[Rfam]
RNA sequence: GAGCGACACUCUGGAAAGCAGCCGAGGGCGAACGCCUUCGGCUCACCGAAGGAGUAACCGGCGCCCGAACGGGCCUCCCGGGAAACUCUCAGGUCGUCCGACAGAGGGGGCGCG
Numbered sequence: 001g002a003g004c005g006a007c008a009c010u011c012u013g014g015a016a017a018g019c020a021g022c023c024g025a026g027g028g029c030g031a032a033c034g035c036c037u038u039c040g041g042c043u044c045a046c047c048g049a050a051g052g053a054g055u056a057a058c059c060g061g062c063g064c065c066c067g068a069a070c071g072g073g074c075c076u077c078c079c080g081g082g083a084a085a086c087u088c089u090c091a092g093g094u095c096g097u098c099c100g101a102c103a104g105a106g107g108g109g110g111c112g113c114g
Base pairs, nucleotide, nucleotide: 007108009106010105011104012103013102020043021042022041023040024039025038026037027036028035045094046093047092048090049089052088053087054086058081059080060079061078

This 114-nucleotide RNA from Siculibacillus lacustris belongs to the Rfam family "Glycine riboswitch aptamer". A search with the family's covariance model found it, with a score of 54 bits. Lineage of the source: Bacteria > Alphaproteobacteria > Hyphomicrobiales > Ancalomicrobiaceae > Siculibacillus.